[Rfam]
Nucleotides: 117
Base pairs, nucleotide, nucleotide: 018084019083020082021081022080023079024078025077026076027075028074030072031071033069034068035067036066039053040052041050042049055063056062088111089110090109091108092107093106094105095104096103097102
Number, partner (000 for none) and nucleotide at each position: 001000a002000a003000u004000g005000a006000u007000a008000a009000c010000a011000g012000c013000a014000g015000c016000u017000u018084u019083u020082u021081u022080u023079a024078c025077u026076u027075u028074c029000u030072u031071u032000u033069u034068u035067a036066c037000a038000c039053c040052c041050c042049c043000a044000c045000u046000c047000u048000a049042g050041g051000a052040g053039g054000c055063g056062g057000a058000u059000u060000u061000a062056c063055u064000g065000u066036g067035u068034a069033a070000a071031a072030a073000c074028g075027a076026a077025a078024g079023u080022a081021a082020a083019a084018a085000u086000c087000c088111a089110a090109a091108g092107c093106c094105u095104c096103c097102c098000a099000a100000c101000u102097g103096g104095g105094a106093g107092g108091c109090u110089u111088u112000u113000u114000u115000g116000u117000c
The record is a 117-nucleotide RNA sequence from Shewanella baltica, which matches "Phenylalanine leader peptide" in Rfam.
NCBI's taxonomy places the organism under Bacteria, Alteromonadales, Shewanellaceae, Shewanella, Shewanella baltica.
Its family is annotated with cellular amino acid metabolic process in the Gene Ontology.
Pairs were carried over by alignment from the consensus structure, which was predicted with CMfinder.